[Rfam]
RNA sequence: CCGCGCCGGAUGACAACCGGUCGCAACGGGGAUUUUGACGGACGCAGCUGAUUUUGCCGGUUUCUGGCUGCGGCAGCAACGCAUCGGUACGCGUUCGACGUCUAACCUGUUUUCGGC
Numbered sequence: 001c002c003g004c005g006c007c008g009g010a011u012g013a014c015a016a017c018c019g020g021u022c023g024c025a026a027c028g029g030g031g032a033u034u035u036u037g038a039c040g041g042a043c044g045c046a047g048c049u050g051a052u053u054u055u056g057c058c059g060g061u062u063u064c065u066g067g068c069u070g071c072g073g074c075a076g077c078a079a080c081g082c083a084u085c086g087g088u089a090c091g092c093g094u095u096c097g098a099c100g101u102c103u104a105a106c107c108u109g110u111u112u113u114c115g116g117c
Base pairs, nucleotide, nucleotide: 006116007115008114009113011023012022013021014020025111026110027109028108029107030106037102038101039100040099043072044071045070046069047068048067049066073088074087077086

A member of the RNA family "Rhizobiales sRNA Atu_At1" from Pseudolabrys taiwanensis, 117 nucleotides long. It scores 75 bits against the family's covariance model. By type it is a small RNA.